RNA sequence: AUCUUUGCGCUUGGGGCAAUGAUACAGUCAGUGAGGUUUUAACCGAGGCGCGUCAAUUGCUGGUUGAGAACUAUUUCCAAACCCCCUCUUGGGCCUCGACUUGUCUUAGGCUCUCGAGAAUUUCUAGAAGGGCCCCUUCCAAAGGGUAGGCC
Numbered sequence: 001a002u003c004u005u006u007g008c009g010c011u012u013g014g015g016g017c018a019a020u021g022a023u024a025c026a027g028u029c030a031g032u033g034a035g036g037u038u039u040u041a042a043c044c045g046a047g048g049c050g051c052g053u054c055a056a057u058u059g060c061u062g063g064u065u066g067a068g069a070a071c072u073a074u075u076u077c078c079a080a081a082c083c084c085c086c087u088c089u090u091g092g093g094c095c096u097c098g099a100c101u102u103g104u105c106u107u108a109g110g111c112u113c114u115c116g117a118g119a120a121u122u123u124c125u126a127g128a129a130g131g132g133c134c135c136c137u138u139c140c141a142a143a144g145g146g147u148a149g150g151c152c
Base pairs, nucleotide, nucleotide: 021054022053023052025050027049028048029047035044036043037042086118087117088116091113092112093111094110095109096108098105099104131152132151133150134149
Annotation: Shown here is a 152-nucleotide RNA sequence from Kingdonia uniflora, a member of the family "U4 spliceosomal RNA". On this family, see Zwieb, Nucleic Acids Res 1997: "The uRNA database". By type it is a spliceosomal small nuclear RNA. About the family: U4 small nuclear RNA (U4 snRNA) is a component of the major U2-dependent spliceosome.